[Rfam]
RNA: Bacillaceae-1 RNA
RNA sequence: GAUAGGCGCUGGCCGCCUUAAAGCGCCACGUCCUGUGGCGUCGGCGGCACUAGGACCUCCUGUCCG
Dot-bracket structure: ...........((((((.......(((((.....)))))...))))))....((((.....)))).
Numbered sequence: 001g002a003u004a005g006g007c008g009c010u011g012g013c014c015g016c017c018u019u020a021a022a023g024c025g026c027c028a029c030g031u032c033c034u035g036u037g038g039c040g041u042c043g044g045c046g047g048c049a050c051u052a053g054g055a056c057c058u059c060c061u062g063u064c065c066g
Stems, first nucleotide, its partner, number of pairs: 012048006025039005053065004